[Rfam]
RNA sequence: AAAAAUGUAAAUAGUUAUGCUUGUAUAAUAGUCAUGAUAUGGAUGACAAGUUUCUACCUGCUGACCGUAAAUCGGCGGACUACAAGCGGAUUUUUGCUUUUU
Numbered sequence: 001a002a003a004a005a006u007g008u009a010a011a012u013a014g015u016u017a018u019g020c021u022u023g024u025a026u027a028a029u030a031g032u033c034a035u036g037a038u039a040u041g042g043a044u045g046a047c048a049a050g051u052u053u054c055u056a057c058c059u060g061c062u063g064a065c066c067g068u069a070a071a072u073c074g075g076c077g078g079a080c081u082a083c084a085a086g087c088g089g090a091u092u093u094u095u096g097c098u099u100u101u102u
Base pairs, nucleotide, nucleotide: 018088019087020086021085022084023083024082025081029049031047032046033045034044035043058078059077060076061075062074063073064072
A member of the RNA family "Purine riboswitch aptamer" from Copranaerobaculum intestinale, 102 nucleotides long.
The match comes from Rfam's covariance-model search (87 bits).